The family of this 78-nucleotide sequence from Cnephaeus nilssonii is "mir-9186 microRNA precursor family".
[Rfam]
RNA sequence: UAGGGUGAAGGUUGCGGUAUGUCUGGUACUGAGAUAAUGGCUGCUCCAGUACCAGACAUGCCGCCCCCUGCCCCUACA
Numbered sequence: 001u002a003g004g005g006u007g008a009a010g011g012u013u014g015c016g017g018u019a020u021g022u023c024u025g026g027u028a029c030u031g032a033g034a035u036a037a038u039g040g041c042u043g044c045u046c047c048a049g050u051a052c053c054a055g056a057c058a059u060g061c062c063g064c065c066c067c068c069u070g071c072c073c074c075u076a077c078a
Stems, first nucleotide, its partner, number of pairs: 001076005009069002014064007023055009
NCBI's taxonomy places the organism under Eukaryota, Craniata, Sarcopterygii, Theria, Cnephaeus.